[Rfam]
RNA sequence: UGUACUCAUAAUUGUAAGUUGCUUUGGAUAAAAGCGUCAGCUAAAUGCCUUAAG
Numbered sequence: 001u002g003u004a005c006u007c008a009u010a011a012u013u014g015u016a017a018g019u020u021g022c023u024u025u026g027g028a029u030a031a032a033a034g035c036g037u038c039a040g041c042u043a044a045a046u047g048c049c050u051u052a053a054g
Base pairs, nucleotide, nucleotide: 013043014041015040020036021035022034023033024032025031

UnaL2 LINE 3' element: a 54-nucleotide RNA sequence from Electrophorus electricus. The eel long interspersed element (LINE) UnaL2 and its partner short interspersed element (SINE) share a conserved 3' tail containing a stem-loop that is critical for their retrotransposition. Presumably, the first step of retrotransposition is the recognition of their 3' tails by UnaL2-encoded reverse transcriptase. The solution structure of a 17-nucleotide RNA derived from the 3' tail of UnaL2 was determined by NMR. Pairs were carried over by alignment from the consensus structure, which is taken from published work. The family's RNA type in Rfam is cis-regulatory element.